[Rfam]
RNA sequence: GGAGGCAAAUGAUGUUUAAACAAAAAUCUUAUACUACACACUGAAAUUUAAUGAAGAAAAAUUAACUCUCAAUUAGUUUACUGAUGCCUCU
Numbered sequence: 001g002g003a004g005g006c007a008a009a010u011g012a013u014g015u016u017u018a019a020a021c022a023a024a025a026a027u028c029u030u031a032u033a034c035u036a037c038a039c040a041c042u043g044a045a046a047u048u049u050a051a052u053g054a055a056g057a058a059a060a061a062u063u064a065a066c067u068c069u070c071a072a073u074u075a076g077u078u079u080a081c082u083g084a085u086g087c088c089u090c091u
Stems, first nucleotide, its partner, number of pairs: 003089005
Overview:
Small nucleolar RNA R16: a 91-nucleotide sequence from Solanum tuberosum. On this family, see Marker et al., Curr Biol 2002: "Experimental RNomics: identification of 140 candidates for small non-messenger RNAs in the plant Arabidopsis thaliana". Taxonomically the source falls in Solanum (Eukaryota, Streptophytina, Euphyllophyta, Magnoliopsida). The base pairs follow the family's consensus structure, which was predicted with PFOLD. Rfam 15.1 lists 884 matches to the family in 222 species. By type it is a C/D-box small nucleolar RNA.